[Rfam]
RNA sequence: CUAAGACGGUGCUUACCUCAGCAACAUCUUUGAAAGUAGGCAUUCUAAGACGUUACUUAUGUAAGCAUCGUCUUGGAAUGCGUACUUUCAAAGACGGUGCUGAUGUAAGCACAGUCCUU
Number, nucleotide and partner (000 for none) at each position: 001c000002u000003a000004a000005g116006a115007c114008g000009g112010u111011g110012c109013u108014u107015a106016c105017c000018u103019c102020a101021g000022c099023a098024a000025c096026a000027u094028c093029u092030u091031u090032g089033a088034a087035a086036g085037u084038a083039g000040g000041c080042a079043u078044u077045c076046u075047a074048a073049g072050a071051c070052g069053u000054u067055a000056c065057u064058u000059a000060u000061g000062u000063a000064a057065g056066c000067a054068u000069c052070g051071u050072c049073u048074u047075g046076g045077a044078a043079u042080g041081c000082g000083u038084a037085c036086u035087u034088u033089c032090a031091a030092a029093g028094a027095c000096g025097g000098u023099g022100c000101u020102g019103a018104u000105g016106u015107a014108a013109g012110c011111a010112c009113a000114g007115u006116c005117c000118u000119u000
The record is a 119-nucleotide RNA sequence from Glycine soja, which matches "MIR4374 microRNA precursor family" in Rfam.
The match comes from Rfam's covariance-model search (108 bits).
The family's consensus secondary structure was predicted with RNAalifold.